Shown here is a 167-nucleotide RNA sequence, a member of the family "FuFi-1 RNA".
RNA sequence: UCCACCAGCUAAUGGGCAGGUAAUUAAUGCUGAACUAAAACAGCAUAAGUGGUGGAAUACUUGAUAGAAACACUUAGCGUUAUUAUGUGUGAUGAAAAUCUGCAAAGUAUAAAAAGUAAAAAAAUUUAGCACGAAACUGUUAGAGAUAACGCCUCUGACAGUUUUUU
Numbered sequence: 001u002c003c004a005c006c007a008g009c010u011a012a013u014g015g016g017c018a019g020g021u022a023a024u025u026a027a028u029g030c031u032g033a034a035c036u037a038a039a040a041c042a043g044c045a046u047a048a049g050u051g052g053u054g055g056a057a058u059a060c061u062u063g064a065u066a067g068a069a070a071c072a073c074u075u076a077g078c079g080u081u082a083u084u085a086u087g088u089g090u091g092a093u094g095a096a097a098a099u100c101u102g103c104a105a106a107g108u109a110u111a112a113a114a115a116g117u118a119a120a121a122a123a124a125u126u127u128a129g130c131a132c133g134a135a136a137c138u139g140u141u142a143g144a145g146a147u148a149a150c151g152c153c154u155c156u157g158a159c160a161g162u163u164u165u166u167u
Base pairs, nucleotide, nucleotide: 001056002055003054004053005052006051007050028045029044030043031042032041035129036128037127038126039125057110058109059108060107061106062105070090071089072088073087075085076084077152078151079150080149081148082147083146091100092099093098133165134164135163136162137161138160139159140158141157142156143155144154145153
The base pairs follow the family's consensus structure, which is taken from published work.